[Rfam]
RNA: Bacterial large subunit ribosomal RNA, nucleotides 9 to 518
Organism: Thalassotalea algicola
RNA sequence: GACUAAGCGUAUGUGGUGGAUGCCUUGGCAGUUAGAGGCGAUGAAAGACGUGUUAAUCUGCGAUAAGCGUAGUUAAGGUGAUAAAAACCGUUAUAGACUACGAUUUCUGAAUGGGGAAACCCAGUGUCAUAAGACACUAUCACUGUGUGAAUACAUAGCACAGUGAGGCAAACCGGGAGAACUGAAACAUCUAAGUACCCCGAGGAAAAGAAAUCAACCGAGAUUUCCUUAGUAGCGGCGAGCGAACGGGAAUUAGCCCUUAAGCGGCAUGGCGUCAGUGGAAUGUUCUGGAAAGGACAACGAUACAGGGUGAUAGUCCCGUACACGAAGACAAAAUGUUUGUGAAAUCGAGUAGGUCGGCACACGUGAAAUGUUGACUGAACAUGGGGGGACCAUCCUCCAAGGCUAAAUACUCCUAACUGACCGAUAGUGAACCAGUACCGUGAGGGAAAGGCGAAAAGAACCCCUGUGAGGGGAGUGAAAUAGAACCUGAAACCGCAUACGUACAAG
Numbered sequence: 001g002a003c004u005a006a007g008c009g010u011a012u013g014u015g016g017u018g019g020a021u022g023c024c025u026u027g028g029c030a031g032u033u034a035g036a037g038g039c040g041a042u043g044a045a046a047g048a049c050g051u052g053u054u055a056a057u058c059u060g061c062g063a064u065a066a067g068c069g070u071a072g073u074u075a076a077g078g079u080g081a082u083a084a085a086a087a088c089c090g091u092u093a094u095a096g097a098c099u100a101c102g103a104u105u106u107c108u109g110a111a112u113g114g115g116g117a118a119a120c121c122c123a124g125u126g127u128c129a130u131a132a133g134a135c136a137c138u139a140u141c142a143c144u145g146u147g148u149g150a151a152u153a154c155a156u157a158g159c160a161c162a163g164u165g166a167g168g169c170a171a172a173c174c175g176g177g178a179g180a181a182c183u184g185a186a187a188c189a190u191c192u193a194a195g196u197a198c199c200c201c202g203a204g205g206a207a208a209a210g211a212a213a214u215c216a217a218c219c220g221a222g223a224u225u226u227c228c229u230u231a232g233u234a235g236c237g238g239c240g241a242g243c244g245a246a247c248g249g250g251a252a253u254u255a256g257c258c259c260u261u262a263a264g265c266g267g268c269a270u271g272g273c274g275u276c277a278g279u280g281g282a283a284u285g286u287u288c289u290g291g292a293a294a295g296g297a298c299a300a301c302g303a304u305a306c307a308g309g310g311u312g313a314u315a316g317u318c319c320c321g322u323a324c325a326c327g328a329a330g331a332c333a334a335a336a337u338g339u340u341u342g343u344g345a346a347a348u349c350g351a352g353u354a355g356g357u358c359g360g361c362a363c364a365c366g367u368g369a370a371a372u373g374u375u376g377a378c379u380g381a382a383c384a385u386g387g388g389g390g391g392a393c394c395a396u397c398c399u400c401c402a403a404g405g406c407u408a409a410a411u412a413c414u415c416c417u418a419a420c421u422g423a424c425c426g427a428u429a430g431u432g433a434a435c436c437a438g439u440a441c442c443g444u445g446a447g448g449g450a451a452a453g454g455c456g457a458a459a460a461g462a463a464c465c466c467c468u469g470u471g472a473g474g475g476g477a478g479u480g481a482a483a484u485a486g487a488a489c490c491u492g493a494a495a496c497c498g499c500a501u502a503c504g505u506a507c508a509a510g
Stems, first nucleotide, its partner, number of pairs: 007505010022490001023454002027425002029422007036414002038169002046108003049062003068102007077089003113122003123138006140166009173204001174202004184191002214221002224410001225252005235243002255407004267343001268338003274332003278326003284299005302306001308320003355379008386401005441448002464476004